[Rfam]
RNA sequence: GCCCGGGUGGCGGAAUGGUAGACGCGCUCGACUCAAACUCGAGUGGCCGAAAGGCCGUAGGGGUUCGAAUCCCCUGCCGGGUA
Dot-bracket structure: ((((((...(((..........))).(((((.......)))))...............(((((.......))))).)))))).

This 83-nucleotide sequence from Tessaracoccus oleiagri belongs to the Rfam family "tRNA". The family's RNA type in Rfam is transfer RNA.